Shown here is a 142-nucleotide RNA sequence from Otolemur garnettii, a member of the family "U4 spliceosomal RNA". About the family: U4 small nuclear RNA (U4 snRNA) is a component of the major U2-dependent spliceosome. The match comes from Rfam's covariance-model search (91 bits). The family's RNA type in Rfam is spliceosomal small nuclear RNA. A reference for the family is Zwieb (1997), "The uRNA database", Nucleic Acids Res.

[Rfam]
RNA sequence: AGCUUUGCACAGUGGCAGAAUUGUAACCAAUGAGAUUUAUCUGAGGUGUGAUUGUUGCUAAUUGAAAACUUUUCCCAAUACCCCACCAUGGCAACUUGAAAUAUAGUAGUAAUUGGCAAUUUUUGGACAGUCUCUAUGGAGA
Number, nucleotide and partner (000 for none) at each position: 001a000002g000003c000004u000005u000006u000007g000008c000009a000010c000011a000012g000013u000014g000015g000016c000017a000018g000019a000020a052021u051022u050023g049024u048025a000026a047027c046028c045029a000030a000031u000032g000033a000034g042035a000036u000037u000038u000039a000040u000041c000042u034043g000044a000045g028046g027047u026048g024049u023050g022051a021052u020053u000054g000055u000056u000057g000058c000059u000060a000061a000062u000063u000064g000065a000066a000067a000068a000069c000070u000071u000072u000073u000074c000075c000076c000077a000078a000079u000080a000081c000082c000083c000084c000085a000086c116087c115088a113089u112090g000091g110092c109093a000094a107095c106096u105097u000098g000099a000100a000101a000102u000103a000104u000105a096106g095107u094108a000109g092110u091111a000112a089113u088114u000115g087116g086117c000118a000119a000120u000121u000122u000123u000124u000125g000126g000127a000128c000129a000130g000131u142132c141133u140134c139135u000136a000137u000138g000139g134140a133141g132142a131